This 246-nucleotide RNA sequence from Sphingomonas sp. AX6 belongs to the Rfam family "permuted transfer-messenger RNA". For this family Rfam cites "The tmRNA Website: invasion by an intron" (Williams, Nucleic Acids Res, 2002). It is annotated as a non-coding RNA gene. Gene Ontology term of the family: RNA catabolic process.
Nucleotides: 246
Base pairs, nucleotide, nucleotide: 001174002173003172004171005170014164015163016162017161027152028151029150031149032148033147037053038052039051040050041049054134055133056132057131058130059129060128175190176189177188
Number, partner (000 for none) and nucleotide at each position: 001174g002173g003172c004171g005170a006000u007000a008000a009000a010000u011000c012000g013000c014164g015163g016162c017161g018000u019000a020000c021000a022000a023000u024000a025000g026000g027152c028151a029150c030000a031149g032148c033147g034000g035000a036000c037053c038052c039051g040050g041049g042000g043000g044000c045000a046000g047000u048000a049041c050040c051039c052038g053037g054134c055133g056132g057131c058130u059129c060128c061000a062000c063000c064000a065000c066000c067000g068000g069000a070000g071000c072000u073000g074000a075000g076000c077000c078000g079000c080000u081000c082000g083000g084000c085000g086000g087000c088000a089000c090000g091000c092000u093000a094000c095000a096000u097000g098000c099000g100000u101000g102000u103000c104000g105000a106000c107000g108000a109000u110000c111000g112000g113000u114000u115000c116000a117000g118000c119000g120000g121000c122000g123000c124000u125000g126000a127000u128060g129059g130058g131057g132056c133055c134054g135000a136000a137000c138000c139000a140000g141000g142000a143000u144000c145000g146000a147033c148032g149031u150029g151028u152027g153000u154000u155000g156000a157000a158000a159000a160000g161017c162016g163015c164014c165000a166000u167000g168000u169000u170005u171004u172003g173002c174001u175190c176189g177188g178000a179000a180000u181000g182000g183000g184000a185000c186000c187000a188177c189176c190175g191000u192000g193000a194000c195000g196000g197000c198000c199000c200000a201000u202000u203000a204000c205000a206000c207000a208000a209000g210000u211000g212000c213000c214000a215000a216000c217000g218000a219000u220000a221000a222000c223000g224000a225000a226000g227000c228000a229000c230000u231000c232000g233000c234000g235000a236000u237000u238000g239000c240000a241000g242000c243000g244000u245000a246000a
Annotation:
A search with the family's covariance model found it, with a score of 126 bits. The base pairs follow the family's consensus structure, which is taken from published work.